[Rfam]
Shown here is a 129-nucleotide RNA sequence from Owenia fusiformis, a member of the family "U4atac minor spliceosomal RNA". Its Rfam clan is "U4 clan". Pairs were carried over by alignment from the consensus structure, which is taken from published work. U4atac is an essential component of the minor U12-type spliceosome complex which is required for removal of the rarer class of eukaryotic introns (AT-AC, U12-type). Rfam classes the family as a spliceosomal small nuclear RNA. The organism belongs to Owenia, within Eukaryota. It scores 92 bits against the family's covariance model.
RNA sequence: ACCGUCCUUAUCUUGGGUUGCGCACUUAUUCAAUGAGCGUCUAGCGAGGAUAAGUCUGCUGACACCACAAAGAUAAACAAACCAUCCCGCUUGGCAGGAAACUGCUAGGUAGGGGUAAUUUUUGGACCC
Numbered sequence: 001a002c003c004g005u006c007c008u009u010a011u012c013u014u015g016g017g018u019u020g021c022g023c024a025c026u027u028a029u030u031c032a033a034u035g036a037g038c039g040u041c042u043a044g045c046g047a048g049g050a051u052a053a054g055u056c057u058g059c060u061g062a063c064a065c066c067a068c069a070a071a072g073a074u075a076a077a078c079a080a081a082c083c084a085u086c087c088c089g090c091u092u093g094g095c096a097g098g099a100a101a102c103u104g105c106u107a108g109g110u111a112g113g114g115g116u117a118a119u120u121u122u123u124g125g126a127c128c129c
Stems, first nucleotide, its partner, number of pairs: 007017003020059003025054007037045002084116005092107006